A member of the RNA family "leuA-Halobacteria RNA" from Halorarum salinum, 53 nucleotides long.
Rfam classes the family as a cis-regulatory element.
The match comes from Rfam's covariance-model search (54 bits).
NCBI's taxonomy places the organism under Archaea, Methanobacteriati, Halobacteriales, Haloferacaceae, Halorarum.
RNA sequence: GUCGGCGGAGGAUAGAGGAAGCCGUUCCCACGCGGCUGGUCGAGAAAUCGGCC
Numbered sequence: 001g002u003c004g005g006c007g008g009a010g011g012a013u014a015g016a017g018g019a020a021g022c023c024g025u026u027c028c029c030a031c032g033c034g035g036c037u038g039g040u041c042g043a044g045a046a047a048u049c050g051g052c053c
Base pairs, nucleotide, nucleotide: 020037021036022035023034024033025032